[Rfam]
RNA sequence: AGAAAGAGAUCUCUGUACAAUUCAUACCGAUGAAACAUUGUACAGAGU
Numbered sequence: 001a002g003a004a005a006g007a008g009a010u011c012u013c014u015g016u017a018c019a020a021u022u023c024a025u026a027c028c029g030a031u032g033a034a035a036c037a038u039u040g041u042a043c044a045g046a047g048u
Base pairs, nucleotide, nucleotide: 011047012046013045014044015043017041018040019039